Rfam assigns this 118-nucleotide RNA sequence from Magallana gigas to the family "U5 spliceosomal RNA". The family's consensus secondary structure is taken from published work. U5 RNA is a component of both types of known spliceosome. Gene Ontology terms of the family: spliceosomal tri-snRNP complex assembly and U5 snRNP.
[Rfam]
RNA sequence: UUACUCUGGUUUCUCUUCAAUCCACGCUUAAAUCUUUCGCCUUUUACUAAAGAUUUCCGUGGAGAGGAACAUUAAAUGAGUCUAUAGACUUAUUUUUGUAACCCUACCUCGGUAGGGU
Numbered sequence: 001u002u003a004c005u006c007u008g009g010u011u012u013c014u015c016u017u018c019a020a021u022c023c024a025c026g027c028u029u030a031a032a033u034c035u036u037u038c039g040c041c042u043u044u045u046a047c048u049a050a051a052g053a054u055u056u057c058c059g060u061g062g063a064g065a066g067g068a069a070c071a072u073u074a075a076a077u078g079a080g081u082c083u084a085u086a087g088a089c090u091u092a093u094u095u096u097u098g099u100a101a102c103c104c105u106a107c108c109u110c111g112g113u114a115g116g117g118u
Stems, first nucleotide, its partner, number of pairs: 003081004009070011030056008100118001102117006